Notes:
This 64-nucleotide RNA from Cnephaeus nilssonii belongs to the Rfam family "mir-9242 microRNA precursor family". The family has 2 seed sequences and 940 matches in Rfam 15.1. The family's consensus secondary structure was predicted with RNAalifold. The organism belongs to Cnephaeus, within Eukaryota. It scores 66 bits against the family's covariance model.
Nucleotides: 064
Stems, first nucleotide, its partner, number of pairs: 001064013015050004020045004025040006
Number, partner (000 for none) and nucleotide at each position: 001064g002063g003062c004061c005060u006059c007058c008057c009056u010055c011054u012053g013052c014000a015050g016049a017048g018047c019000g020045a021044u022043u023042g024000a025040u026039u027038a028037u029036g030035g031000g032000g033000c034000u035030c036029u037028a038027u039026g040025a041000a042023c043022a044021a045020u046000g047018g048017c049016u050015c051000c052013g053012c054011a055010g056009a057008g058007g059006g060005a061004g062003g063002c064001c